[Rfam]
Nucleotides: 204
Base pairs, nucleotide, nucleotide: 002050003049004048005047006046008044010040011039012038013037014036015035017034018033019032020031021030022028067121068120069119070118071117072116073115074114081110082109083108084107085106086105087104092101093100127144128143129142130141131140133201134200135199136198137197138196139165146159147158148157149156150155170194171193172192173191174190175189176188177187178186
Number, partner (000 for none) and nucleotide at each position: 001000a002050c003049c004048u005047u006046a007000u008044a009000a010040a011039g012038a013037u014036g015035u016000a017034u018033g019032a020031a021030c022028g023000c024000a025000a026000g027000a028022c029000a030021g031020u032019u033018u034017g035015g036014c037013a038012u039011c040010u041000c042000c043000c044008u045000u046006u047005a048004a049003g050002g051000c052000c053000u054000u055000g056000u057000u058000c059000g060000a061000u062000u063000a064000g065000a066000a067121a068120c069119u070118u071117c072116a073115a074114u075000g076000a077000c078000a079000a080000g081110u082109c083108u084107u085106a086105u087104u088000g089000u090000g091000a092101g093100g094000c095000a096000u097000u098000c099000g100093u101092c102000g103000a104087a105086a106085u107084a108083a109082g110081a111000u112000g113000a114074a115073u116072u117071g118070a119069a120068g121067u122000g123000g124000a125000a126000u127144g128143a129142g130141u131140u132000a133201a134200c135199c136198g137197u138196a139165a140131g141130a142129c143128u144127u145000u146159g147158a148157a149156u150155u151000a152000a153000a154000a155150a156149a157148u158147u159146c160000u161000a162000a163000a164000a165139u166000u167000g168000a169000u170194c171193u172192c173191a174190g175189a176188g177187g178186u179000u180000a181000u182000u183000a184000u185000u186178g187177c188176u189175u190174u191173u192172g193171a194170g195000u196138u197137a198136c199135g200134g201133u202000u203000c204000u

Rfam assigns this 204-nucleotide RNA to the family "IS605-orfB-I RNA". Pairs were carried over by alignment from the consensus structure, which is taken from published work.